This 83-nucleotide RNA from Operophtera brumata belongs to the Rfam family "mir-2765 microRNA precursor family". The organism belongs to Operophtera, within Eukaryota. Pairs were carried over by alignment from the consensus structure, which was predicted with RNAalifold. The match comes from Rfam's covariance-model search (81 bits).

[Rfam]
RNA sequence: AACGUACCUGGGCCUGGUAACUCCACCACCGUUGGCGGUUGUCAUUAGUCAACGGAGGCAGUGUUCCCGCUCCUAGGUGCGAG
Numbered sequence: 001a002a003c004g005u006a007c008c009u010g011g012g013c014c015u016g017g018u019a020a021c022u023c024c025a026c027c028a029c030c031g032u033u034g035g036c037g038g039u040u041g042u043c044a045u046u047a048g049u050c051a052a053c054g055g056a057g058g059c060a061g062u063g064u065u066c067c068c069g070c071u072c073c074u075a076g077g078u079g080c081g082a083g
Stems, first nucleotide, its partner, number of pairs: 003081010016068002019065003023061001026058002029055008